[Rfam]
RNA sequence: CGCUCCCUGGGGUGUUAGCCAGUCAAUAAAGACCUCGAGCCGAUGCGUAUUACCCAGGAGGGGAAGUUGGUUGUUGUGUGCAUGUCCGCAUGACGGAAAGCCUUAUUCAGCCAAUACCCCGCCACCUUGAACUUCAGGGUUCAAGGGCUUUAUGUUUGACAGCGGCACAGUGGGGAGCCC
Numbered sequence: 001c002g003c004u005c006c007c008u009g010g011g012g013u014g015u016u017a018g019c020c021a022g023u024c025a026a027u028a029a030a031g032a033c034c035u036c037g038a039g040c041c042g043a044u045g046c047g048u049a050u051u052a053c054c055c056a057g058g059a060g061g062g063g064a065a066g067u068u069g070g071u072u073g074u075u076g077u078g079u080g081c082a083u084g085u086c087c088g089c090a091u092g093a094c095g096g097a098a099a100g101c102c103u104u105a106u107u108c109a110g111c112c113a114a115u116a117c118c119c120c121g122c123c124a125c126c127u128u129g130a131a132c133u134u135c136a137g138g139g140u141u142c143a144a145g146g147g148c149u150u151u152a153u154g155u156u157u158g159a160c161a162g163c164g165g166c167a168c169a170g171u172g173g174g175g176a177g178c179c180c
Stems, first nucleotide, its partner, number of pairs: 002178008012168004018163002031148001033146002037142005057123002060120004065115001067114007080101002085097004
Rfam assigns this 180-nucleotide sequence from Bacterioplanes sanyensis to the family "6S / SsrS RNA".
On this family, see Wassarman and Storz, Cell 2000: "6S RNA regulates E. coli RNA polymerase activity".
NCBI's taxonomy places the organism under Bacteria, Gammaproteobacteria, Oceanospirillales, Oceanospirillaceae, Bacterioplanes.
The family's RNA type in Rfam is non-coding RNA gene.
A search with the family's covariance model found it, with a score of 96 bits.